The record is a 102-nucleotide RNA from Lentibacillus populi, which matches "Purine riboswitch aptamer" in Rfam. It scores 80 bits against the family's covariance model. Gene Ontology term of the family: purine nucleobase biosynthetic process. The organism belongs to Lentibacillus, within Bacteria.
[Rfam]
RNA sequence: ACAUUCUAUACAGCAUUCACUCAUAUAAUCGCGGGAAUAUGGCCUGCAAGUAUCUACCGGUUUGCCGUAAACAGACUGACUAUGAGCAGCAAUGAAAAGAAA
Numbered sequence: 001a002c003a004u005u006c007u008a009u010a011c012a013g014c015a016u017u018c019a020c021u022c023a024u025a026u027a028a029u030c031g032c033g034g035g036a037a038u039a040u041g042g043c044c045u046g047c048a049a050g051u052a053u054c055u056a057c058c059g060g061u062u063u064g065c066c067g068u069a070a071a072c073a074g075a076c077u078g079a080c081u082a083u084g085a086g087c088a089g090c091a092a093u094g095a096a097a098a099g100a101a102a
Stems, first nucleotide, its partner, number of pairs: 020086006029049001031047005058078007
Dot-bracket structure: ...................((((((...(.(((((.......))))).)........(((((((.......)))))))..))))))................